[Rfam]
Nucleotides: 171
Base pairs, nucleotide, nucleotide: 005167006166007165008164009163010162011157012156013097015152016151017150020146021145022144025142026141027140028139029138030137031136032135039115040114041113042112043111045075046074047073048072049071055066056065057064058063082106083105084104085103088100089099090098117130118129119128
Number, partner (000 for none) and nucleotide at each position: 001000g002000a003000a004000g005167c006166a007165c008164c009163u010162c011157g012156u013097u014000c015152g016151g017150u018000g019000a020146g021145g022144c023000u024000u025142c026141u027140g028139u029138g030137c031136g032135g033000a034000c035000a036000c037000a038000g039115g040114c041113c042112a043111c044000u045075g046074a047073c048072c049071c050000c051000c052000c053000a054000a055066c056065g057064u058063c059000g060000a061000g062000a063058g064057a065056c066055g067000u068000u069000c070000c071049g072048g073047g074046u075045c076000a077000g078000g079000a080000c081000a082106g083105g084104u085103c086000u087000c088100c089099c090098c091000g092000g093000c094000c095000u096000a097013a098090g099089g100088g101000g102000u103085g104084a105083c106082c107000c108000c109000a110000a111043g112042u113041g114040g115039c116000u117130u118129c119128c120000c121000g122000g123000c124000a125000a126000c127000g128119g129118g130117a131000u132000a133000c134000g135032c136031c137030g138029u139028g140027c141026a142025g143000u144022g145021c146020c147000a148000a149000a150017g151016c152015u153000c154000u155000g156012a157011c158000g159000a160000g161000a162010g163009g164008g165007g166006u167005g168000u169000g170000c171000g

The family of this 171-nucleotide sequence from Kutzneria viridogrisea is "M-box riboswitch aptamer (ykoK leader)". A search with the family's covariance model found it, with a score of 144 bits. Rfam 15.1 lists 1,095 matches to the family in 932 species. Rfam describes the family as follows. M-box riboswitch, also know as ykoK leader is described as a metaloregulatory RNA that sense divalent metals and function as a genetic control element of genes related to divalent metal transport in bacteria. It was first reported upstream of the B.subtilis ykoK gene and genes with related functions in other bacteria. Lineage of the source: Bacteria > Actinomycetes > Pseudonocardiales > Kutzneria > Kutzneria viridogrisea. The base pairs follow the family's consensus structure.